The record is a 117-nucleotide sequence from Populus trichocarpa, which matches "MIR6445 microRNA precursor family" in Rfam. Rfam 15.1 lists 9 matches to the family in 4 species. The base pairs follow the family's consensus structure, which was predicted with RNAalifold.

RNA sequence: CACGUUGUUCAUUCCUCUUCCUAAAAUGGCUUCUCCUUCAAUUUUAAAAAAAAUAAAAAUUAAAGGAGAAUCCAAUAUGAAAUGAGAAGCUAUUUUAGGAAGGGAAUGAAUACGGUG
Numbered sequence: 001c002a003c004g005u006u007g008u009u010c011a012u013u014c015c016u017c018u019u020c021c022u023a024a025a026a027u028g029g030c031u032u033c034u035c036c037u038u039c040a041a042u043u044u045u046a047a048a049a050a051a052a053a054u055a056a057a058a059a060u061u062a063a064a065g066g067a068g069a070a071u072c073c074a075a076u077a078u079g080a081a082a083u084g085a086g087a088a089g090c091u092a093u094u095u096u097a098g099g100a101a102g103g104g105a106a107u108g109a110a111u112a113c114g115g116u117g
Base pairs, nucleotide, nucleotide: 001117002116003115006112007111008110009109010108011107012106013105014104015103017102018101019100020099021098022097023096024095025094026093027092028091029090030089031088032087033086034085035084036068037067038066039065042064043063044062049061050060